This 89-nucleotide RNA from Calidifontibacillus erzurumensis belongs to the Rfam family "pan motif". Rfam classes the family as a cis-regulatory element. NCBI's taxonomy places the organism under Bacteria, Bacillati, Bacilli, Caryophanales, Calidifontibacillus.
[Rfam]
RNA sequence: UGGGUAGUAUUCUUUAUGAAACUACACCAAAAUGAUUUAUACUUAUUUAAAAAAAGCUGCCUUGAUCCGAUACGGACUAGGACAGGGGA
Numbered sequence: 001u002g003g004g005u006a007g008u009a010u011u012c013u014u015u016a017u018g019a020a021a022c023u024a025c026a027c028c029a030a031a032a033u034g035a036u037u038u039a040u041a042c043u044u045a046u047u048u049a050a051a052a053a054a055a056g057c058u059g060c061c062u063u064g065a066u067c068c069g070a071u072a073c074g075g076a077c078u079a080g081g082a083c084a085g086g087g088g089a
Base pairs, nucleotide, nucleotide: 001029002028003027004025005024006023007022008021010020011019057085058084059083060081061080062079064077066076067075068074